[Rfam]
RNA sequence: UAAGUAGCGUGUCCCGUCAAGGGCUAGCCACCCAACGGAAGCGAGUCUUGCAUAGUCACUGGAGACGAUGGCAUGAAGCGUAGACAGCGACUGCCGAAGGCCAGUAUAGAGCCACGAAAUAUUUGCAAUACCGGGGUUUUAACUGUUAAAUGAGUUGGAACAACACUGAUGACAGCGAGAGAGUAAAGGCAAGUAGUCACAGCCUGGUCGUGGUCUGAGACCU
Numbered sequence: 001u002a003a004g005u006a007g008c009g010u011g012u013c014c015c016g017u018c019a020a021g022g023g024c025u026a027g028c029c030a031c032c033c034a035a036c037g038g039a040a041g042c043g044a045g046u047c048u049u050g051c052a053u054a055g056u057c058a059c060u061g062g063a064g065a066c067g068a069u070g071g072c073a074u075g076a077a078g079c080g081u082a083g084a085c086a087g088c089g090a091c092u093g094c095c096g097a098a099g100g101c102c103a104g105u106a107u108a109g110a111g112c113c114a115c116g117a118a119a120u121a122u123u124u125g126c127a128a129u130a131c132c133g134g135g136g137u138u139u140u141a142a143c144u145g146u147u148a149a150a151u152g153a154g155u156u157g158g159a160a161c162a163a164c165a166c167u168g169a170u171g172a173c174a175g176c177g178a179g180a181g182a183g184u185a186a187a188g189g190c191a192a193g194u195a196g197u198c199a200c201a202g203c204c205u206g207g208u209c210g211u212g213g214u215c216u217g218a219g220a221c222c223u
Stems, first nucleotide, its partner, number of pairs: 012039002015037003021033003025192001027190002041088002045085004049080002051075003056071003060067002109215001111214006130208006136161003141156004166202003170199004175194002
Dot-bracket structure: ...........((.(((...(((.[.[[..))).))))).((..(((((((((..(((.((....)).))).)))...)).)))).))....................(.((((((.............(((((((((..((((........))))..)))....(((.((((.((............]].])).))))))))))))))))))))........
Group II catalytic intron D1-D4-6: a 223-nucleotide RNA from Echinicola vietnamensis.
The source organism's lineage runs through Bacteria, Pseudomonadati, Bacteroidota, Cytophagales and Echinicola vietnamensis.
The base pairs follow the family's consensus structure.
From the family's description: Group II introns are found in rRNA, tRNA and mRNA of organelles in fungi, plants and protists, and also in mRNA in bacteria.